[Rfam]
The record is a 73-nucleotide RNA from a Candidatus Latescibacterota bacterium, which matches "tRNA" in Rfam. About the family: Transfer RNA (tRNA) molecules are approximately 80 nucleotides in length. Their secondary structure includes four short double-helical elements and three loops (D, anti-codon, and T loops). Further hydrogen bonds mediate the characteristic L-shaped molecular structure. tRNAs have two regions of fundamental functional importance: the anti-codon, which is responsible for specific mRNA codon recognition, and the 3' end, to which the tRNAs corresponding amino acid is attached (by aminoacyl-tRNA synthetases). tRNAs cope with the degeneracy of the genetic code in two manners: having more than one tRNA (with a specific anti-codon) for a particular amino acid; and 'wobble' base-pairing, i.e. permitting non-standard base-pairing at the 3rd anti-codon position. It is annotated as a transfer RNA. NCBI's taxonomy places the organism under Bacteria, Pseudomonadati, Candidatus Latescibacterota. Pairs were carried over by alignment from the consensus structure, which is taken from published work.
RNA sequence: GCGGGAGUAGCUCAGCUGGUAGAGCAUAACCUUGCCAAGGUUAGGGUCGCGAGUUCAAAUCUCGUCUCCCGCU
Number, nucleotide and partner (000 for none) at each position: 001g072002c071003g070004g069005g068006a067007g066008u000009a000010g025011c024012u023013c022014a000015g000016c000017u000018g000019g000020u000021a000022g013023a012024g011025c010026a000027u043028a042029a041030c040031c039032u000033u000034g000035c000036c000037a000038a000039g031040g030041u029042u028043a027044g000045g000046g000047u000048c000049g065050c064051g063052a062053g061054u000055u000056c000057a000058a000059a000060u000061c053062u052063c051064g050065u049066c007067u006068c005069c004070c003071g002072c001073u000